[Rfam]
RNA sequence: GCCCGGCAGGGAGAUGGCAUGCCUCCCGUUCCUGGCACCACUGGAACAAACCACCUUCGGGUUGAUGAUGCCUGCACCACC
Numbered sequence: 001g002c003c004c005g006g007c008a009g010g011g012a013g014a015u016g017g018c019a020u021g022c023c024u025c026c027c028g029u030u031c032c033u034g035g036c037a038c039c040a041c042u043g044g045a046a047c048a049a050a051c052c053a054c055c056u057u058c059g060g061g062u063u064g065a066u067g068a069u070g071c072c073u074g075c076a077c078c079a080c081c
Base pairs, nucleotide, nucleotide: 010026011025012024013023016072017071018070019069020068053062054061055060
The family of this 81-nucleotide sequence from Dyella sp. OK004 is "Fluoride riboswitch aptamer (crcB RNA motif)". NCBI's taxonomy places the organism under Bacteria, Pseudomonadota, Lysobacterales, Rhodanobacteraceae, Dyella.